[Rfam]
Nucleotides: 134
Stems, first nucleotide, its partner, number of pairs: 003061004020045008072127004084114002089108007
Number, partner (000 for none) and nucleotide at each position: 001000c002000u003061g004060c005059g006058u007000g008000a009000u010000g011000g012000a013000a014000g015000u016000g017000u018000a019000u020045c021044a022043u023042u024041c025040u026039u027038c028000u029000a030000u031000g032000u033000u034000c035000u036000a037000a038027g039026g040025a041024g042023a043022a044021u045020g046000u047000g048000u049000a050000u051000u052000c053000c054000c055000u056000c057000a058006g059005u060004g061003c062000u063000a064000u065000a066000a067000a068000a069000u070000a071000a072127g073126g074125a075124g076000a077000u078000u079000u080000c081000a082000g083000g084114g085113c086000c087000a088000c089108c090107a091106g092105c093104c094103u095102u096000g097000g098000a099000g100000u101000a102095g103094g104093g105092g106091c107090u108089g109000a110000a111000u112000g113085g114084u115000a116000g117000u118000a119000u120000a121000u122000u123000u124075c125074u126073c127072c128000u129000a130000c131000a132000u133000u134000a